About this RNA:
A member of the RNA family "Iron response element II" from Crocodylus porosus, 31 nucleotides long. About the family: IRE, TFRC, SLC40A1, SDHB, SLC11A2, CDC42BPA, ACO2, ALAS2_H.SAPIENS, CDC14A, EPAS1, ALAS2, qoxD, Hao1, NDUFS1, transferrin, Aconitate.
[Rfam]
RNA sequence: GUGUUUUCAGUGGCAGUGCACACUAAAAUAC
Numbered sequence: 001g002u003g004u005u006u007u008c009a010g011u012g013g014c015a016g017u018g019c020a021c022a023c024u025a026a027a028a029u030a031c
Base pairs, nucleotide, nucleotide: 001031002030003029004028005027006026007025009024010023011022012021014018